[Rfam]
The record is a 72-nucleotide RNA sequence from Planctopirus limnophila, which matches "tRNA" in Rfam. It is annotated as a transfer RNA. It scores 68 bits against the family's covariance model.

RNA sequence: GGCGCCGUAGCCAAGUGGCUAAGGCAGUGGAUUGCAAAUCCACCAUCCCCGGUUCGAAUCCGGGCGGCGCCU
Numbered sequence: 001g002g003c004g005c006c007g008u009a010g011c012c013a014a015g016u017g018g019c020u021a022a023g024g025c026a027g028u029g030g031a032u033u034g035c036a037a038a039u040c041c042a043c044c045a046u047c048c049c050c051g052g053u054u055c056g057a058a059u060c061c062g063g064g065c066g067g068c069g070c071c072u
Stems, first nucleotide, its partner, number of pairs: 001071007010025003027043005048064005